[Rfam]
RNA sequence: CUCUUAUCCAGAGAGGUGGAGGGACUGGCCUGAUGAUACCUCGGCAACCGGUAUAAAGUCGGUGCCAAUUCCAGCGGAACCACGUUCUGAAAGAUAAGAG
Number, nucleotide and partner (000 for none) at each position: 001c100002u099003c098004u097005u096006a095007u094008c093009c000010a000011g000012a000013g042014a041015g040016g039017u038018g000019g000020a000021g031022g030023g029024a000025c074026u073027g072028g071029c023030c022031u021032g000033a000034u000035g000036a000037u000038a017039c016040c015041u014042c013043g066044g065045c064046a063047a000048c062049c061050g000051g059052u058053a000054u000055a000056a000057a000058g052059u051060c000061g049062g048063u046064g045065c044066c043067a000068a000069u000070u092071c028072c027073a026074g025075c089076g088077g087078a086079a085080c084081c000082a000083c000084g080085u079086u078087c077088u076089g075090a000091a000092a070093g008094a007095u006096a005097a004098g003099a002100g001

A member of the RNA family "SAM riboswitch aptamer (S box leader)" from Aneurinibacillus migulanus, 100 nucleotides long. The match comes from Rfam's covariance-model search (89 bits).